[Rfam]
The record is an 81-nucleotide sequence from Otolemur garnettii, which matches "Small nucleolar RNA SNORD72" in Rfam. The pairing is the family consensus, mapped onto this sequence. The sequence is in the family's curated seed alignment. The family has 16 seed sequences and 726 matches in Rfam 15.1. Rfam's curators write: snoRNA HBII-240 belongs to the CD family of snoRNAs. It is the human orthologue of the mouse MBII-240 and is predicted to guide 2'O-ribose methylation of the large 28S rRNA at residue U4590. Its family is annotated with RNA processing and nucleolus in the Gene Ontology. Rfam classes the family as a C/D-box small nucleolar RNA.

RNA sequence: CUAUUAUCAGUGAUGUUGUAAAAAUAAAUGUCUGAGCAUAUGAAUUACCAUAUUGAUUUCAGCAGUAGACUGAGAUUAAAA
Numbered sequence: 001c002u003a004u005u006a007u008c009a010g011u012g013a014u015g016u017u018g019u020a021a022a023a024a025u026a027a028a029u030g031u032c033u034g035a036g037c038a039u040a041u042g043a044a045u046u047a048c049c050a051u052a053u054u055g056a057u058u059u060c061a062g063c064a065g066u067a068g069a070c071u072g073a074g075a076u077u078a079a080a081a
Stems, first nucleotide, its partner, number of pairs: 002080001004078001006076003